A member of the RNA family "raiA RNA" from Ellagibacter isourolithinifaciens, 245 nucleotides long.
The organism belongs to Ellagibacter, within Bacteria.
By type it is a riboswitch.
It scores 148 bits against the family's covariance model.
The base pairs follow the family's consensus structure, which is taken from published work.
RNA sequence: UUCUUUCGGGUCUGUAGUUGCGGAAACGCUCCGGGCGUUUCUCAGUCCAAGGCAGACGCGGUCGAAAGGAUCCACGUAAGUUGCGCGUUUUGCGCGCAGCGAGCAUGGCGCGUCCUAGAGGUAAGUCGCACCGCCCGAUCCCAUUUUCGUGCGGCACAAGGCCGCCGCGGGCGAGAGGUACUACGGGUGCAAGCUCACGACCCAGUGCGCGAGUGUGGGGGCAAAGACUAGGUCAGCCGAAAGAA
Numbered sequence: 001u002u003c004u005u006u007c008g009g010g011u012c013u014g015u016a017g018u019u020g021c022g023g024a025a026a027c028g029c030u031c032c033g034g035g036c037g038u039u040u041c042u043c044a045g046u047c048c049a050a051g052g053c054a055g056a057c058g059c060g061g062u063c064g065a066a067a068g069g070a071u072c073c074a075c076g077u078a079a080g081u082u083g084c085g086c087g088u089u090u091u092g093c094g095c096g097c098a099g100c101g102a103g104c105a106u107g108g109c110g111c112g113u114c115c116u117a118g119a120g121g122u123a124a125g126u127c128g129c130a131c132c133g134c135c136c137g138a139u140c141c142c143a144u145u146u147u148c149g150u151g152c153g154g155c156a157c158a159a160g161g162c163c164g165c166c167g168c169g170g171g172c173g174a175g176a177g178g179u180a181c182u183a184c185g186g187g188u189g190c191a192a193g194c195u196c197a198c199g200a201c202c203c204a205g206u207g208c209g210c211g212a213g214u215g216u217g218g219g220g221g222c223a224a225a226g227a228c229u230a231g232g233u234c235a236g237c238c239g240a241a242a243g244a245a
Stems, first nucleotide, its partner, number of pairs: 001245009012236003015230005049216001051214001052062001055114006071108002080100007106223001127209005132173005177202003181199001187194002